The family of this 105-nucleotide sequence from Williopsis jadinii is "Small nucleolar RNA snR66". The match comes from Rfam's covariance-model search (79 bits). Lineage of the source: Eukaryota > Opisthokonta > Ascomycota > saccharomyceta > Williopsis. Gene Ontology terms of the family: nucleolus and RNA processing. Pairs were carried over by alignment from the consensus structure.
RNA sequence: GCUUCUUUUUAAAUGAUGAGAUACCAACGCAACAUAGAGUCAAGCUCAGAGUACAAAAAGUACUGGGACGAGACUUGCAUUCAUAUUUUCUGACUAAAGAGAAGU
Numbered sequence: 001g002c003u004u005c006u007u008u009u010u011a012a013a014u015g016a017u018g019a020g021a022u023a024c025c026a027a028c029g030c031a032a033c034a035u036a037g038a039g040u041c042a043a044g045c046u047c048a049g050a051g052u053a054c055a056a057a058a059a060g061u062a063c064u065g066g067g068a069c070g071a072g073a074c075u076u077g078c079a080u081u082c083a084u085a086u087u088u089u090c091u092g093a094c095u096a097a098a099g100a101g102a103a104g105u
Stems, first nucleotide, its partner, number of pairs: 001105006
Dot-bracket structure: ((((((.............................................................................................))))))